[Rfam]
Shown here is a 148-nucleotide RNA sequence from Podiceps cristatus, a member of the family "U12 minor spliceosomal RNA". For this family Rfam cites "Pre-mRNA splicing: the discovery of a new spliceosome doubles the challenge" (Tarn and Steitz, Trends Biochem Sci, 1997). The pairing is the family consensus, mapped onto this sequence. Rfam links the family to the GO terms pre-mRNA branch point binding, mRNA branch site recognition and U12 snRNP. The family has 62 seed sequences and 2,106 matches in Rfam 15.1. Lineage of the source: Eukaryota > Dipnotetrapodomorpha > Theropoda > Podicipedidae > Podiceps.
RNA sequence: AUACCUUAAACUUAUGAGUAAGGAAAAUAACAACCUGGGGUGAUGCCCAGGUCCUCUCUAGGAAUGUGAGAGGAAUUUUUGCAGGGGUACAGGUCAUCCCUGGGUGGCCUGUUUACUCUGUAGAAUGCCUGGACUUUUUUUUUUUUUU
Numbered sequence: 001a002u003a004c005c006u007u008a009a010a011c012u013u014a015u016g017a018g019u020a021a022g023g024a025a026a027a028u029a030a031c032a033a034c035c036u037g038g039g040g041u042g043a044u045g046c047c048c049a050g051g052u053c054c055u056c057u058c059u060a061g062g063a064a065u066g067u068g069a070g071a072g073g074a075a076u077u078u079u080u081g082c083a084g085g086g087g088u089a090c091a092g093g094u095c096a097u098c099c100c101u102g103g104g105u106g107g108c109c110u111g112u113u114u115a116c117u118c119u120g121u122a123g124a125a126u127g128c129c130u131g132g133a134c135u136u137u138u139u140u141u142u143u144u145u146u147u148u
Stems, first nucleotide, its partner, number of pairs: 004023005033052007054070003058066001085148003091144003096139001100132001102130005109123004